Rfam assigns this 400-nucleotide RNA sequence from Flavobacterium pallidum to the family "transfer-messenger RNA". NCBI's taxonomy places the organism under Bacteria, Pseudomonadati, Bacteroidota, Flavobacteriia, Flavobacterium.
RNA sequence: GGGGUCGACUGGUUUUGACAGCAGGUCGAAUUGAACGAUAAGCAUGCCGAGAAUGGGGACAAUUUCUCGUUAAUCCAAAAGUCCCAACACUUUUACACGGCGAAAAUAACUACGCUUUAGCUGCUUAAUCCGAAUUAUAGUACGAUGAGCCACGUCUCUGCAAGGCAGGGAAGCUGGAUUCUCCUUGAAAGCCCUGGUCUGUGGCGUUCUUUAAAGGGGAACCGUAAAAAUAGACCUAGGGAUGUUGAAGCUUCGGCGCCAUCCUGACAACUAAGAAGCUAAGCAUCAGUCGGCUGUUCCUGGCCACAGCUGAUGACGAAAAUCCAAUCAGGAAAUAAGCAUGUAGAAAGUCCUUUGGUUGCCUGUUUGGACCCGGGUUCGAUUCCCGGCGACUCCACCU
Numbered sequence: 001g002g003g004g005u006c007g008a009c010u011g012g013u014u015u016u017g018a019c020a021g022c023a024g025g026u027c028g029a030a031u032u033g034a035a036c037g038a039u040a041a042g043c044a045u046g047c048c049g050a051g052a053a054u055g056g057g058g059a060c061a062a063u064u065u066c067u068c069g070u071u072a073a074u075c076c077a078a079a080a081g082u083c084c085c086a087a088c089a090c091u092u093u094u095a096c097a098c099g100g101c102g103a104a105a106a107u108a109a110c111u112a113c114g115c116u117u118u119a120g121c122u123g124c125u126u127a128a129u130c131c132g133a134a135u136u137a138u139a140g141u142a143c144g145a146u147g148a149g150c151c152a153c154g155u156c157u158c159u160g161c162a163a164g165g166c167a168g169g170g171a172a173g174c175u176g177g178a179u180u181c182u183c184c185u186u187g188a189a190a191g192c193c194c195u196g197g198u199c200u201g202u203g204g205c206g207u208u209c210u211u212u213a214a215a216g217g218g219g220a221a222c223c224g225u226a227a228a229a230a231u232a233g234a235c236c237u238a239g240g241g242a243u244g245u246u247g248a249a250g251c252u253u254c255g256g257c258g259c260c261a262u263c264c265u266g267a268c269a270a271c272u273a274a275g276a277a278g279c280u281a282a283g284c285a286u287c288a289g290u291c292g293g294c295u296g297u298u299c300c301u302g303g304c305c306a307c308a309g310c311u312g313a314u315g316a317c318g319a320a321a322a323u324c325c326a327a328u329c330a331g332g333a334a335a336u337a338a339g340c341a342u343g344u345a346g347a348a349a350g351u352c353c354u355u356u357g358g359u360u361g362c363c364u365g366u367u368u369g370g371a372c373c374c375g376g377g378u379u380c381g382a383u384u385c386c387c388g389g390c391g392a393c394u395c396c397a398c399c400u
Stems, first nucleotide, its partner, number of pairs: 001396007019369002021366006030359006037352003043343005048069005056085005116178007124170003179221006186213004191207002194204001198233001202230001239265006249280006284315007292305003297334003302328001373389005
The match comes from Rfam's covariance-model search (154 bits).